[Rfam]
RNA sequence: UUGGGUGAAGUUCAUGUGGGUACCACACAUUAGAAAUGGAACCCACAUAAAGUGAUGAGACUCACAUGAGUUUCACCCAA
Number, nucleotide and partner (000 for none) at each position: 001u080002u079003g078004g077005g076006u075007g074008a073009a072010g071011u070012u069013c068014a067015u066016g065017u064018g063019g000020g000021u000022a000023c000024c057025a056026c054027a053028c052029a000030u050031u049032a048033g000034a000035a000036a000037u000038g000039g000040a000041a000042c000043c000044c000045a000046c000047a000048u032049a031050a030051a000052g028053u027054g026055a000056u025057g024058a000059g000060a000061c000062u000063c018064a017065c016066a015067u014068g013069a012070g011071u010072u009073u008074c007075a006076c005077c004078c003079a002080a001
RNA: MIR5269 microRNA precursor family
Organism: Medicago truncatula